[Rfam]
RNA sequence: CUUGAGGAAGCAUUUUGUCCAUGUCAGCACAAAACGCUUCCUUGAGGAUGCAAUUUGUGCUGACAUGGAUAAAACGCUUCCUCAAGG
Numbered sequence: 001c002u003u004g005a006g007g008a009a010g011c012a013u014u015u016u017g018u019c020c021a022u023g024u025c026a027g028c029a030c031a032a033a034a035c036g037c038u039u040c041c042u043u044g045a046g047g048a049u050g051c052a053a054u055u056u057g058u059g060c061u062g063a064c065a066u067g068g069a070u071a072a073a074a075c076g077c078u079u080c081c082u083c084a085a086g087g
Stems, first nucleotide, its partner, number of pairs: 001086011013074009023064011036051002040047002

Rfam assigns this 87-nucleotide RNA from Gossypium stocksii to the family "MIR7486 microRNA precursor family". A search with the family's covariance model found it, with a score of 74 bits.